[Rfam]
RNA sequence: GCAUCGCAAUCUUUCCUGGUUCUCACGGGACAGUGUGAGGUCAGGGAUACACGAUGCAACAGGAAAGCAGAGGAAAUCCAGAUGAGAUCCCUUUCCCUACAGUGGGACUUGUCUCUACGCCUUUGCAACAUUU
Numbered sequence: 001g002c003a004u005c006g007c008a009a010u011c012u013u014u015c016c017u018g019g020u021u022c023u024c025a026c027g028g029g030a031c032a033g034u035g036u037g038a039g040g041u042c043a044g045g046g047a048u049a050c051a052c053g054a055u056g057c058a059a060c061a062g063g064a065a066a067g068c069a070g071a072g073g074a075a076a077u078c079c080a081g082a083u084g085a086g087a088u089c090c091c092u093u094u095c096c097c098u099a100c101a102g103u104g105g106g107a108c109u110u111g112u113c114u115c116u117a118c119g120c121c122u123u124u125g126c127a128a129c130a131u132u133u
Stems, first nucleotide, its partner, number of pairs: 001057005013047007021039001067126006080114007094106003
Overview:
The family of this 133-nucleotide RNA from Turnix velox is "Small nucleolar RNA SNORA55". The family's RNA type in Rfam is H/ACA-box small nucleolar RNA. Pairs were carried over by alignment from the consensus structure, which was predicted with PFOLD. ACA55 is a member of the H/ACA class of snoRNA that guide the sites of modification of uridines to pseudouridines. It scores 88 bits against the family's covariance model. Gene Ontology terms of the family: RNA processing and nucleolus. NCBI's taxonomy places the organism under Eukaryota, Theropoda, Aves, Turnicidae, Turnix.